This 93-nucleotide RNA from Halalkalibacter wakoensis belongs to the Rfam family "c-di-GMP-I riboswitch aptamer".
[Rfam]
RNA sequence: UAUCAGAAAAGGCAUAGUCUAUCGAAAGGUAGUGACGCAAAGUUUCAGAUCUAAGGUAAUCAAACGGAUUGCUAUGAUGGCUGGGCUACCGAA
Number, nucleotide and partner (000 for none) at each position: 001u000002a000003u000004c000005a000006g000007a000008a000009a000010a000011g000012g038013c037014a000015u000016a000017g000018u000019c032020u031021a030022u029023c028024g000025a000026a000027a000028g023029g022030u021031a020032g019033u000034g000035a000036c000037g013038c012039a000040a000041a087042g086043u085044u084045u000046c083047a082048g081049a078050u077051c076052u000053a000054a000055g000056g072057u071058a070059a069060u068061c067062a000063a000064a000065c000066g000067g061068a060069u059070u058071g057072c056073u000074a000075u000076g051077a050078u049079g000080g000081c048082u047083g046084g044085g043086c042087u041088a000089c000090c000091g000092a000093a000
Description
A reference for the family is Weinberg et al. (2007), "Identification of 22 candidate structured RNAs in bacteria using the CMfinder comparative genomics pipeline", Nucleic Acids Res. A search with the family's covariance model found it, with a score of 63 bits.